This 87-nucleotide RNA sequence from Serpentinicella alkaliphila belongs to the Rfam family "c-di-GMP-I riboswitch aptamer". The base pairs follow the family's consensus structure, which is taken from published work.
[Rfam]
RNA sequence: CAACGACAAUAGCAAACCAUUCGAAAGGAUGGGACGCAAAGCUAUAGGGCCUAAAGCACAUAGUGCAAUGGUAGCCAAGCCACCGAA
Dot-bracket structure: ...........((...((((((....))))))...))...(((.(.(((((....((((...))))...)))..)))))).......
Numbered sequence: 001c002a003a004c005g006a007c008a009a010u011a012g013c014a015a016a017c018c019a020u021u022c023g024a025a026a027g028g029a030u031g032g033g034a035c036g037c038a039a040a041g042c043u044a045u046a047g048g049g050c051c052u053a054a055a056g057c058a059c060a061u062a063g064u065g066c067a068a069u070g071g072u073a074g075c076c077a078a079g080c081c082a083c084c085g086a087a
Stems, first nucleotide, its partner, number of pairs: 012037002017032006041080003045077001047076002049072003056066004